[Rfam]
Background
Rfam assigns this 66-nucleotide sequence from Microcebus murinus to the family "U7 small nuclear RNA". The family's consensus secondary structure was predicted with PFOLD.
RNA sequence: AAGUGUUACAGUUCUUUUAGAAUUUGUCUAGCAGGUUUUCUGGUUUUUACCAGAAAAAAAACCACA
Numbered sequence: 001a002a003g004u005g006u007u008a009c010a011g012u013u014c015u016u017u018u019a020g021a022a023u024u025u026g027u028c029u030a031g032c033a034g035g036u037u038u039u040c041u042g043g044u045u046u047u048u049a050c051c052a053g054a055a056a057a058a059a060a061a062c063c064a065c066a
Stems, first nucleotide, its partner, number of pairs: 034063003037056008
Dot-bracket structure: .................................(((((((((((....))))))))....)))...

Animal histone pre-mRNAs are spliced by a different mechanism than nuclear pre-mRNAs and self-splicing introns. This processing involves the U7 snRNP, which contains only one RNA species: U7. The 5' end of U7 RNA is thought to base-pair to a conserved spacer element downstream of the cleavage site in histone pre-mRNA. This family contains a number of annotated U7 pseudogenes. It scores 65 bits against the family's covariance model.